[Rfam]
A member of the RNA family "rydB RNA" from Klebsiella variicola, 56 nucleotides long. Taxonomically the source falls in Klebsiella pneumoniae complex (Bacteria, Pseudomonadati, Pseudomonadota, Enterobacteriaceae).
RNA sequence: GCCCCUUCAAGAGCUAAGCCAAUGUGAGUGCCGGAGAUAAGCGCCGGAUGGGGUCC
Numbered sequence: 001g002c003c004c005c006u007u008c009a010a011g012a013g014c015u016a017a018g019c020c021a022a023u024g025u026g027a028g029u030g031c032c033g034g035a036g037a038u039a040a041g042c043g044c045c046g047g048a049u050g051g052g053g054u055c056c
Base pairs, nucleotide, nucleotide: 002053003052004051005050013029014028015027031047032046033045034044036042